Shown here is a 57-nucleotide sequence from Dioscorea cayenensis, a member of the family "Plastid-rps18 3UTR RNA". The source organism's lineage runs through Eukaryota, Streptophytina, Petrosaviidae, Dioscoreales and Dioscorea cayenensis. Plastid rps18 is a non-coding RNA (ncRNA) present in plastids. It was identified as a short stem-loop motif in the 3 prime untranslate region (3UTR) of rps18 gene. On this family, see Richter et al., Plant Commun 2023: "Retrograde signaling in plants: A critical review focusing on the GUN pathway and beyond". By type it is a cis-regulatory element. The family's consensus secondary structure was predicted with LocARNA.

RNA sequence: CGCAAGUAUUUUACGGUUAAGAAGCAAUUGCCUCUUGUACAGAUUGUGUAUGAAUUU
Number, nucleotide and partner (000 for none) at each position: 001c000002g000003c000004a000005a000006g000007u000008a000009u000010u000011u000012u000013a000014c000015g000016g000017u000018u037019a036020a035021g034022a033023a000024g031025c030026a000027a000028u000029u000030g025031c024032c000033u022034c021035u020036u019037g018038u000039a000040c000041a000042g000043a000044u000045u000046g000047u000048g000049u000050a000051u000052g000053a000054a000055u000056u000057u000